Rfam assigns this 82-nucleotide sequence from Oryza brachyantha to the family "Small nucleolar RNA Z161/Z228".

[Rfam]
RNA sequence: GGGCCUAGUGAUGAGAAUAUAUCAAUUAUCUCACGAUGGUCUGCUGAGAAUUCUUUGAUUUGAUAAAUAUUCUCUGAAGCCC
Numbered sequence: 001g002g003g004c005c006u007a008g009u010g011a012u013g014a015g016a017a018u019a020u021a022u023c024a025a026u027u028a029u030c031u032c033a034c035g036a037u038g039g040u041c042u043g044c045u046g047a048g049a050a051u052u053c054u055u056u057g058a059u060u061u062g063a064u065a066a067a068u069a070u071u072c073u074c075u076g077a078a079g080c081c082c
Stems, first nucleotide, its partner, number of pairs: 001082004048056003